[Rfam]
RNA sequence: AGUAAGGGUAGAGGUGCAAUAAUCAUUAGUAGAUGCAGGGAGAAGCGGAGGCUUCGGUGAAUCGCAUCGAAAGGGGACAUUGCCGAAGUGGCAGAAGCCUCAUGAUUCUGACCGCUGGUUCUGGUAUUUAAAAGAUGCAGAACUGUCAUAUAGGAGACUAUAUGGAGGGCUAUCUUACGG
Dot-bracket structure: .....((((((....(((((..((.......(((((.(.......................).)))))......))..)))))...((((((((((.(.....).))))).)))))(((((((.((((.....))))))))))).(((((((......)))))))....)))))).....

Rfam assigns this 180-nucleotide RNA sequence from Salimicrobium jeotgali to the family "Lysine riboswitch aptamer". From the family's description: Riboswitches are metabolite binding domains within certain messenger RNAs that serve as precision sensors for their corresponding targets. Allosteric rearrangement of mRNA structure is mediated by ligand binding, and this results in modulation of gene expression. This family includes riboswitches that sense lysine in a number of genes involved in lysine metabolism, including lysC. The family's consensus secondary structure is taken from published work. The match comes from Rfam's covariance-model search (114 bits).